[Rfam]
RNA sequence: CUUGCACGCGGUGACCGGCCACUGGGCCGAAGGCGGAGCAAGAAACAUACCGGGCGCAGGCAGAGCGCCGCGCCGG
Numbered sequence: 001c002u003u004g005c006a007c008g009c010g011g012u013g014a015c016c017g018g019c020c021a022c023u024g025g026g027c028c029g030a031a032g033g034c035g036g037a038g039c040a041a042g043a044a045a046c047a048u049a050c051c052g053g054g055c056g057c058a059g060g061c062a063g064a065g066c067g068c069c070g071c072g073c074c075g076g
Stems, first nucleotide, its partner, number of pairs: 001042005007035003010015001016029005051076001053074005059069003
A member of the RNA family "Cupriavidus-1 RNA" from Cupriavidus sp. USMAA2-4, 76 nucleotides long. The organism belongs to Cupriavidus, within Bacteria.